[Rfam]
RNA sequence: AGAAAGUUAGUCUAACUAAGACAGCUGGUUUCGACCCAGCAAAUUAUAGACCCACCUAUAACUUUCUU
Numbered sequence: 001a002g003a004a005a006g007u008u009a010g011u012c013u014a015a016c017u018a019a020g021a022c023a024g025c026u027g028g029u030u031u032c033g034a035c036c037c038a039g040c041a042a043a044u045u046a047u048a049g050a051c052c053c054a055c056c057u058a059u060a061a062c063u064u065u066c067u068u
Base pairs, nucleotide, nucleotide: 001067002066003065004064005063006062007061010022011021012020013019024040025039026038027037028036045060046059047058048057049056
The record is a 68-nucleotide RNA, which matches "tRNA" in Rfam. For this family Rfam cites "The tertiary structure of tRNA and the development of the genetic code" (Hou, Trends Biochem Sci, 1993). It is annotated as a transfer RNA.